[Rfam]
RNA sequence: UAAUAUAAUUAAAUAGUCAUCCGUAUAAUCUUGAAAAUAUGGUUCAAGAGUCUCUACCAGAAUACCUUAAAUAUCUGACUAUGGGUGGAUCCGUGAAAUUU
Numbered sequence: 001u002a003a004u005a006u007a008a009u010u011a012a013a014u015a016g017u018c019a020u021c022c023g024u025a026u027a028a029u030c031u032u033g034a035a036a037a038u039a040u041g042g043u044u045c046a047a048g049a050g051u052c053u054c055u056a057c058c059a060g061a062a063u064a065c066c067u068u069a070a071a072u073a074u075c076u077g078a079c080u081a082u083g084g085g086u087g088g089a090u091c092c093g094u095g096a097a098a099u100u101u
Base pairs, nucleotide, nucleotide: 018087019086020085021084022083023082024081025080029049030048031047032046033045034044035043058077059076060075061074063073064072
A member of the RNA family "Purine riboswitch aptamer" from Clostridium carboxidivorans, 101 nucleotides long.
Rfam 15.1 lists 4,097 matches to the family in 1,411 species.
The base pairs follow the family's consensus structure, which is taken from published work.
Taxonomically the source falls in Clostridium carboxidivorans (Bacteria, Bacillota, Clostridia, Eubacteriales).
Rfam links the family to the GO term purine nucleobase biosynthetic process.